The family of this 54-nucleotide sequence from Coregonus sp. 'balchen' is "UnaL2 LINE 3' element". It is annotated as a cis-regulatory element. For this family Rfam cites "Solution structure of an RNA stem-loop derived from the 3' conserved region of eel LINE UnaL2" (Baba et al., RNA, 2004). A search with the family's covariance model found it, with a score of 66 bits.
RNA sequence: CAUCAUAAUAACUGUAAGUCGCUCUGGAUAAGAGCGUCUGCUAAAUGACUAAAC
Numbered sequence: 001c002a003u004c005a006u007a008a009u010a011a012c013u014g015u016a017a018g019u020c021g022c023u024c025u026g027g028a029u030a031a032g033a034g035c036g037u038c039u040g041c042u043a044a045a046u047g048a049c050u051a052a053a054c
Stems, first nucleotide, its partner, number of pairs: 013043001014041003020036006